RNA sequence: CCGCAUUCUCAGGGCGGGGCGAAAUUCCCCACCGGUGGUAAGCGUAAGUAAGCCCACGAGCGUUCAUACCCUGUAUGAAGUCAGCAGAUUUGGUGAAAAUCCAAAGCCGACAGUGAUAGUCUGGAUGGUAGAGAAUAGCG
Number, nucleotide and partner (000 for none) at each position: 001c000002c000003g000004c000005a136006u135007u134008c133009u132010c131011a000012g000013g000014g000015c000016g000017g029018g028019g027020c000021g000022a000023a000024a000025u000026u000027c019028c018029c017030c000031a120032c119033c109034g108035g057036u056037g055038g054039u000040a000041a000042g000043c000044g000045u000046a000047a000048g000049u000050a000051a000052g107053c106054c038055c037056a036057c035058g000059a000060g085061c084062g000063u000064u000065c000066a000067u000068a000069c000070c000071c000072u000073g000074u000075a000076u000077g000078a000079a000080g000081u000082c000083a000084g061085c060086a000087g000088a000089u105090u104091u103092g102093g101094u000095g000096a000097a000098a000099a000100u000101c093102c092103a091104a090105a089106g053107c052108c034109g033110a000111c123112a122113g121114u000115g000116a000117u000118a000119g032120u031121c113122u112123g111124g000125a000126u000127g000128g000129u000130a000131g010132a009133g008134a007135a006136u005137a000138g000139c000140g000
RNA: FMN riboswitch aptamer (RFN element)
Organism: Gallibacterium salpingitidis